[Rfam]
RNA sequence: UUGCCCAGUGAUUAUAAAAAGACGCGUUAUUCUGAGGAUUACAACCAGCUACUGUUCUCUCCUCUUUGUCUCACUCUGUAUUUUAUCUAUCUACCUAAUCUAUUCUCUACUACUUCACGCUCUCUUCUUUCCCCUCAAGCCAGUAGCUGGUCCAGUGACUGCGAUUAUGAGAUAUGAGGGCAA
Numbered sequence: 001u002u003g004c005c006c007a008g009u010g011a012u013u014a015u016a017a018a019a020a021g022a023c024g025c026g027u028u029a030u031u032c033u034g035a036g037g038a039u040u041a042c043a044a045c046c047a048g049c050u051a052c053u054g055u056u057c058u059c060u061c062c063u064c065u066u067u068g069u070c071u072c073a074c075u076c077u078g079u080a081u082u083u084u085a086u087c088u089a090u091c092u093a094c095c096u097a098a099u100c101u102a103u104u105c106u107c108u109a110c111u112a113c114u115u116c117a118c119g120c121u122c123u124c125u126u127c128u129u130u131c132c133c134c135u136c137a138a139g140c141c142a143g144u145a146g147c148u149g150g151u152c153c154a155g156u157g158a159c160u161g162c163g164a165u166u167a168u169g170a171g172a173u174a175u176g177a178g179g180g181c182a183a
Base pairs, nucleotide, nucleotide: 001183002182003181004180005179006178035106036105037104038103039102
RNA: Small nucleolar RNA SNORD97